[Rfam]
RNA sequence: GGCUGGAGCAGCCUCUGCUGAUGACCCUUCUCCCUCUGAUGGCUCUGCUGCUGAUGAGCACCCAGCCAAAGCCUCUAAGAAGUUGGCUGAAGGGGCUGUUCCUGU
Numbered sequence: 001g002g003c004u005g006g007a008g009c010a011g012c013c014u015c016u017g018c019u020g021a022u023g024a025c026c027c028u029u030c031u032c033c034c035u036c037u038g039a040u041g042g043c044u045c046u047g048c049u050g051c052u053g054a055u056g057a058g059c060a061c062c063c064a065g066c067c068a069a070a071g072c073c074u075c076u077a078a079g080a081a082g083u084u085g086g087c088u089g090a091a092g093g094g095g096c097u098g099u100u101c102c103u104g105u
Stems, first nucleotide, its partner, number of pairs: 007100009
The record is a 105-nucleotide RNA sequence from Oenanthe oenanthe, which matches "Small nucleolar RNA SNORD125" in Rfam.
For this family Rfam cites "snoSeeker: an advanced computational package for screening of guide and orphan snoRNA genes in the human genome" (Yang et al., Nucleic Acids Res, 2006).
Rfam links the family to the GO terms nucleolus and RNA processing.
Lineage of the source: Eukaryota > Sarcopterygii > Dipnotetrapodomorpha > Aves > Oenanthe.
Its Rfam clan is "SNORD61 clan".